[Rfam]
RNA: MIR535 microRNA precursor family
Organism: Amborella trichopoda
RNA sequence: AUACUUAGGUGACAACGAGAAAGAGCACGCAUGUGCACAGGCAUGUACCUCACAUGAAUGGCCACAAGCGUGCUCUCUCUCGUUGUCACGCAAGG
Numbered sequence: 001a002u003a004c005u006u007a008g009g010u011g012a013c014a015a016c017g018a019g020a021a022a023g024a025g026c027a028c029g030c031a032u033g034u035g036c037a038c039a040g041g042c043a044u045g046u047a048c049c050u051c052a053c054a055u056g057a058a059u060g061g062c063c064a065c066a067a068g069c070g071u072g073c074u075c076u077c078u079c080u081c082g083u084u085g086u087c088a089c090g091c092a093a094g095g
Base pairs, nucleotide, nucleotide: 010088011087012086013085014084016082017081020078023075025073026072027071028070029069030068032066033065034064